[Rfam]
RNA sequence: CCCCUUCUCUAAAAGCACCCUGCUCAAACUGCAGGAGCCAAGCCUUCGGGUUUAGCUCAUGUGGCCGUGUAAGCAGUGGUACACCAGGGAAGGACAAUAAAGGCAUGGUGUCGCAAUUGAGUCUCUGGGGGACCUCUUUCUUAAUGUCCAGUCCCCUUUGUCUCAAGAUCCUGUGCUACACAU
Numbered sequence: 001c002c003c004c005u006u007c008u009c010u011a012a013a014a015g016c017a018c019c020c021u022g023c024u025c026a027a028a029c030u031g032c033a034g035g036a037g038c039c040a041a042g043c044c045u046u047c048g049g050g051u052u053u054a055g056c057u058c059a060u061g062u063g064g065c066c067g068u069g070u071a072a073g074c075a076g077u078g079g080u081a082c083a084c085c086a087g088g089g090a091a092g093g094a095c096a097a098u099a100a101a102g103g104c105a106u107g108g109u110g111u112c113g114c115a116a117u118u119g120a121g122u123c124u125c126u127g128g129g130g131g132a133c134c135u136c137u138u139u140c141u142u143a144a145u146g147u148c149c150a151g152u153c154c155c156c157u158u159u160g161u162c163u164c165a166a167g168a169u170c171c172u173g174u175g176c177u178a179c180a181c182a183u
Stems, first nucleotide, its partner, number of pairs: 018079002021075004028068002031065001035058001037056002040053005102177007110169001127152001130149003
This 183-nucleotide sequence from Gymnodraco acuticeps belongs to the Rfam family "Small nucleolar RNA SNORA81".
The match comes from Rfam's covariance-model search (86 bits).
Its family is annotated with RNA processing and nucleolus in the Gene Ontology.
The family's consensus secondary structure was predicted with WAR.
The family's RNA type in Rfam is H/ACA-box small nucleolar RNA.
A reference for the family is Gu et al. (2005), "A novel experimental approach for systematic identification of box H/ACA snoRNAs from eukaryotes", Nucleic Acids Res.